[Rfam]
RNA sequence: ACUGCUUUUCUUUGAAAUCCCUUAAUUGCGGAGCCCGUUAAUCUCUGAUUAGCGGGUUUUUUUAU
Dot-bracket structure: ...............................((((((((((((...)))))))))))).......
RNA: RybB RNA